RNA sequence: CAGCCUGAAAUGAUGAUUCUUUAAAUUUCAUGUCUCUUCUCUGACAUAUUUCUCUGGAGGUAGUUCUUGCCUUAUUGAUCUGAUUAGGCUG
Numbered sequence: 001c002a003g004c005c006u007g008a009a010a011u012g013a014u015g016a017u018u019c020u021u022u023a024a025a026u027u028u029c030a031u032g033u034c035u036c037u038u039c040u041c042u043g044a045c046a047u048a049u050u051u052c053u054c055u056g057g058a059g060g061u062a063g064u065u066c067u068u069g070c071c072u073u074a075u076u077g078a079u080c081u082g083a084u085u086a087g088g089c090u091g
Stems, first nucleotide, its partner, number of pairs: 001091005
Shown here is a 91-nucleotide RNA sequence from Phocoena sinus, a member of the family "Small nucleolar RNA SNORD111". Rfam classes the family as a C/D-box small nucleolar RNA. The family's consensus secondary structure was predicted with RNAalifold. Rfam 15.1 lists 894 matches to the family in 541 species. A reference for the family is Galardi et al. (2002), "Purified box C/D snoRNPs are able to reproduce site-specific 2'-O-methylation of target RNA in vitro", Mol Cell Biol. It scores 99 bits against the family's covariance model.